[Rfam]
This 74-nucleotide RNA sequence from Planctomycetaceae bacterium SCGC AG-212-F19 belongs to the Rfam family "Fluoride riboswitch aptamer (crcB RNA motif)". It scores 48 bits against the family's covariance model. Its family is annotated with response to fluoride and positive regulation of gene expression in the Gene Ontology.
RNA sequence: UACGGAAAAGGCGAUGGAGUUCGCCAUAACCGCGCGGUUCCGAAGGAGCCGUUGCUGAUAACUCCUACCGCGAG
Dot-bracket structure: .........[[[[..((((((]]]]......((....................))....)))))).........
Taxonomically the source falls in Planctomycetaceae (Bacteria, Planctomycetota, Planctomycetia, Planctomycetales).